[Rfam]
RNA: U2 spliceosomal RNA
Nucleotides: 185
Base pairs, nucleotide, nucleotide: 006022007021008020043062044061045060046059047058048057064080065079066078067077068076069075070074107139108138109137110136111135114132120129121128122127142178143177144176145175146174147173149170150169151168152167153166
Number, partner (000 for none) and nucleotide at each position: 001000a002000u003000a004000u005000a006022u007021u008020u009000g010000u011000a012000a013000a014000a015000a016000a017000a018000a019000a020008a021007a022006a023000a024000a025000a026000a027000a028000a029000a030000a031000a032000a033000a034000a035000u036000c037000u038000g039000u040000u041000c042000u043062u044061a045060u046059c047058a048057g049000u050000u051000u052000a053000a054000u055000a056000u057048c058047u059046g060045a061044u062043a063000u064080g065079u066078c067077c068076c069075c070074c071000a072000u073000c074070g075069g076068g077067g078066g079065a080064c081000u082000a083000c084000a085000u086000a087000u088000u089000a090000a091000a092000u093000g094000g095000a096000u097000u098000u099000u100000c101000g102000a103000a104000c105000a106000g107139g108138g109137a110136g111135u112000c113000c114132g115000g116000a117000a118000a119000u120129g121128g122127g123000c124000u125000u126000g127122c128121u129120c130000c131000a132114u133000c134000c135111g136110c137109u138108c139107c140000a141000c142178g143177c144176a145175u146174c147173g148000a149170c150169c151168c152167g153166g154000u155000a156000u157000u158000g159000c160000a161000g162000u163000a164000c165000c166153u167152c168151g169150g170149g171000a172000a173147c174146g175145g176144u177143g178142c179000a180000a181000a182000c183000a184000c185000u